[Rfam]
RNA: Lysine riboswitch aptamer
RNA sequence: GGUCUCGAUAGAGGUGCGGUCUUUAUGAUUAAUUACGCUUGCCAUGGCUAAUGGAAUGAAGCGUCAUGAAAGGAAAGUUCGCCGAAGGAUUUUGAAUUGCCACCAACUUCCUGGGUUUAUUGCAAACAGCAAUAAAACUGUCAUCAUUCAUUUGAUGGAGUGCUAUCUAAGAA
Numbered sequence: 001g002g003u004c005u006c007g008a009u010a011g012a013g014g015u016g017c018g019g020u021c022u023u024u025a026u027g028a029u030u031a032a033u034u035a036c037g038c039u040u041g042c043c044a045u046g047g048c049u050a051a052u053g054g055a056a057u058g059a060a061g062c063g064u065c066a067u068g069a070a071a072g073g074a075a076a077g078u079u080c081g082c083c084g085a086a087g088g089a090u091u092u093u094g095a096a097u098u099g100c101c102a103c104c105a106a107c108u109u110c111c112u113g114g115g116u117u118u119a120u121u122g123c124a125a126a127c128a129g130c131a132a133u134a135a136a137a138c139u140g141u142c143a144u145c146a147u148u149c150a151u152u153u154g155a156u157g158g159a160g161u162g163c164u165a166u167c168u169a170a171g172a173a
Stems, first nucleotide, its partner, number of pairs: 007167005016082004021077004032067002035064005086112004092106003113139002116136008141158006